RNA sequence: CAGCAUGUUUCCAAGAGCUGUGGCCAUUCAUGGCCAAGCUAGAGCAUCCUAAAGAGACUUUGACAGAACAGGUCAGCAUAAUAUCUGCAACUUCCACUCACCUGCCUAUAACA
Numbered sequence: 001c002a003g004c005a006u007g008u009u010u011c012c013a014a015g016a017g018c019u020g021u022g023g024c025c026a027u028u029c030a031u032g033g034c035c036a037a038g039c040u041a042g043a044g045c046a047u048c049c050u051a052a053a054g055a056g057a058c059u060u061u062g063a064c065a066g067a068a069c070a071g072g073u074c075a076g077c078a079u080a081a082u083a084u085c086u087g088c089a090a091c092u093u094c095c096a097c098u099c100a101c102c103u104g105c106c107u108a109u110a111a112c113a
Stems, first nucleotide, its partner, number of pairs: 012038001017034006055103002066094002069087004
Notes
This 113-nucleotide RNA sequence from Canis lupus belongs to the Rfam family "Small nucleolar RNA SNORA44". The family is grouped with related families in Rfam's "SNORA44 clan". It scores 69 bits against the family's covariance model. Rfam's curators write: ACA44 is a member of the H/ACA class of snoRNA that guide the sites of modification of uridines to pseudouridines. NCBI's taxonomy places the organism under Eukaryota, Craniata, Laurasiatheria, Carnivora, Canis lupus. It is annotated as an H/ACA-box small nucleolar RNA.